[Rfam]
Notes
The family of this 90-nucleotide RNA from Paenibacillus agri is "c-di-GMP-I riboswitch aptamer". It scores 64 bits against the family's covariance model.
RNA sequence: CAUGUAUAAUAGCAAACCGUCUGAAAAGGCGGGACGCAAAGUCCAGGAGUCUAAAGUGCUAAUCAGUGCCAUGACCGUCCGACUGCCAUG
Numbered sequence: 001c002a003u004g005u006a007u008a009a010u011a012g013c014a015a016a017c018c019g020u021c022u023g024a025a026a027a028g029g030c031g032g033g034a035c036g037c038a039a040a041g042u043c044c045a046g047g048a049g050u051c052u053a054a055a056g057u058g059c060u061a062a063u064c065a066g067u068g069c070c071a072u073g074a075c076c077g078u079c080c081g082a083c084u085g086c087c088a089u090g
Base pairs, nucleotide, nucleotide: 012037013036017032018031019030020029021028022027040084041083042082043081046080047079048078049075050074051073056069057068058067059066